[Rfam]
RNA sequence: AAUGCUAUGAUGAGAUGAGACACCAUUUGGUGUUUUAUAGGGCAGUGGAAGAUGUAUCUCCGUGAGCCCCAUUGUAUAAACGACUUCUCCUUCCACUGAGCACU
Dot-bracket structure: (.(((..............................................................................................))).)

Shown here is a 104-nucleotide RNA sequence from Camellia sinensis, a member of the family "Small nucleolar RNA Z152/R70/R12/". The organism belongs to Camellia, within Eukaryota. It scores 81 bits against the family's covariance model. Pairs were carried over by alignment from the consensus structure, which was predicted with PFOLD.